[Rfam]
RNA sequence: CAAGUAACAAUAUCCUGGUGCUGCUUGAGUACAUCUCACAGACUCCAGCAUCAGUGAUUUUGUUGCUGG
Numbered sequence: 001c002a003a004g005u006a007a008c009a010a011u012a013u014c015c016u017g018g019u020g021c022u023g024c025u026u027g028a029g030u031a032c033a034u035c036u037c038a039c040a041g042a043c044u045c046c047a048g049c050a051u052c053a054g055u056g057a058u059u060u061u062g063u064u065g066c067u068g069g
Stems, first nucleotide, its partner, number of pairs: 006064005012058003015054009
A member of the RNA family "mir-338 microRNA precursor family" from Chanos chanos, 69 nucleotides long. A reference for the family is Chen et al. (2005), "The developmental miRNA profiles of zebrafish as determined by small RNA cloning", Genes Dev. Gene Ontology terms of the family: RISC complex and miRNA-mediated post-transcriptional gene silencing. Rfam 15.1 lists 1,231 matches to the family in 632 species. Taxonomically the source falls in Chanos (Eukaryota, Bilateria, Teleostomi, Actinopteri). Pairs were carried over by alignment from the consensus structure, which was predicted with RNAalifold.